[Rfam]
RNA sequence: AUGCAGGUACUGUUACAAUACAACUGAAGUGUUUUAUUGUCGUUCCCCCUGCUUAAAGCAAUUGAUGCAUAACUGUCUCUGUCUAGCACAAUUCCAUAGUAAGACAGACGCUUGGUCUCAAACAU
Numbered sequence: 001a002u003g004c005a006g007g008u009a010c011u012g013u014u015a016c017a018a019u020a021c022a023a024c025u026g027a028a029g030u031g032u033u034u035u036a037u038u039g040u041c042g043u044u045c046c047c048c049c050u051g052c053u054u055a056a057a058g059c060a061a062u063u064g065a066u067g068c069a070u071a072a073c074u075g076u077c078u079c080u081g082u083c084u085a086g087c088a089c090a091a092u093u094c095c096a097u098a099g100u101a102a103g104a105c106a107g108a109c110g111c112u113u114g115g116u117c118u119c120a121a122a123c124a125u
Base pairs, nucleotide, nucleotide: 003052004051005050006049007048015040016039017038018037019036020035022033023032024031078108079107080106081105083103084102085100
This 125-nucleotide sequence from Diceros bicornis belongs to the Rfam family "Small nucleolar RNA SNORA63". It scores 96 bits against the family's covariance model. It is annotated as an H/ACA-box small nucleolar RNA. Taxonomically the source falls in Diceros bicornis (Eukaryota, Opisthokonta, Eumetazoa, Theria). From the family's description: E3 belongs to the H/ACA class of snoRNAs and is involved in the processing of eukaryotic pre-rRNA and has regions of complementarity to 18S rRNA. E3 is encoded in introns in the gene for protein synthesis initiation factor 4AII. Rfam links the family to the GO terms nucleolus and RNA processing.